Rfam assigns this 84-nucleotide sequence from Lentzea albidocapillata to the family "c-di-GMP-II-GCG riboswitch aptamer".
The match comes from Rfam's covariance-model search (50 bits).
The literature on the family includes a 2017 paper in Proc Natl Acad Sci U S A by Weinberg et al., "Bioinformatic analysis of riboswitch structures uncovers variant classes with altered ligand specificity".

[Rfam]
RNA sequence: GCCGAGGGGCGAAGCGAUGAACCACCGGGCGAGUAUGGUCGCCGGUCCGGUGGGGAGCUAGAGGCGAACCCACCGCCUGGGAGC
Numbered sequence: 001g002c003c004g005a006g007g008g009g010c011g012a013a014g015c016g017a018u019g020a021a022c023c024a025c026c027g028g029g030c031g032a033g034u035a036u037g038g039u040c041g042c043c044g045g046u047c048c049g050g051u052g053g054g055g056a057g058c059u060a061g062a063g064g065c066g067a068a069c070c071c072a073c074c075g076c077c078u079g080g081g082a083g084c
Stems, first nucleotide, its partner, number of pairs: 001084002007078005013059003022053008037071002039067005
The organism belongs to Lentzea, within Bacteria. Its family is annotated with cyclic-di-GMP binding and regulation of gene expression in the Gene Ontology.